[Rfam]
RNA: SL2 RNA
Organism: Caenorhabditis angaria
RNA sequence: GGUUUAUACCCAGUUAACCAAGGUAAUUUGGUGUUUUGACCUUUCGAAAGAAAGUGUUGAAAAACAACUGUAAUUUUUGGAUCCAGCUUCUUCGGGGUAUCCGGAGAGGCGAA
Number, nucleotide and partner (000 for none) at each position: 001g000002g000003u000004u000005u000006a000007u000008a034009c031010c030011c000012a000013g027014u026015u000016a000017a024018c023019c000020a000021a000022g000023g018024u017025a000026a014027u013028u000029u000030g010031g009032u000033g000034u008035u000036u000037u059038g058039a057040c056041c054042u053043u052044u051045c050046g000047a000048a000049a000050g045051a044052a043053a042054g041055u000056g040057u039058u038059g037060a000061a000062a000063a000064a000065c000066a000067a000068c000069u000070g000071u000072a000073a000074u000075u000076u000077u000078u000079g000080g000081a000082u000083c000084c000085a000086g000087c000088u111089u000090c109091u108092u107093c106094g000095g000096g102097g101098u000099a000100u000101c097102c096103g000104g000105a000106g093107a092108g091109g090110c000111g088112a000113a000